[Rfam]
RNA sequence: ACUUGGAAUACGCUUAAUUUCCGGCUGUUCUCGCCGGAAAGCGGGGGAACCAAUCAAUAGGGGCGAAUUGCGCGAGUCUCGAGCUUGGCGCAUAGGGUACCAUCUGACCCGAGCCCGACAGCUAACCUCGUCAGCAGUAGGAUGGGUCAAU
Dot-bracket structure: ...........(((...((((((((.......))))))))((((((....(........)(((.....((((................))))..((((........))))...))).........)))))).)))................
Numbered sequence: 001a002c003u004u005g006g007a008a009u010a011c012g013c014u015u016a017a018u019u020u021c022c023g024g025c026u027g028u029u030c031u032c033g034c035c036g037g038a039a040a041g042c043g044g045g046g047g048a049a050c051c052a053a054u055c056a057a058u059a060g061g062g063g064c065g066a067a068u069u070g071c072g073c074g075a076g077u078c079u080c081g082a083g084c085u086u087g088g089c090g091c092a093u094a095g096g097g098u099a100c101c102a103u104c105u106g107a108c109c110c111g112a113g114c115c116c117g118a119c120a121g122c123u124a125a126c127c128u129c130g131u132c133a134g135c136a137g138u139a140g141g142a143u144g145g146g147u148c149a150a151u
Stems, first nucleotide, its partner, number of pairs: 012135003018040008041131006051060001061116003069092004095110004
A member of the RNA family "c-di-AMP riboswitch aptamer (ydaO/yuaA leader)" from Cohnella lubricantis, 151 nucleotides long.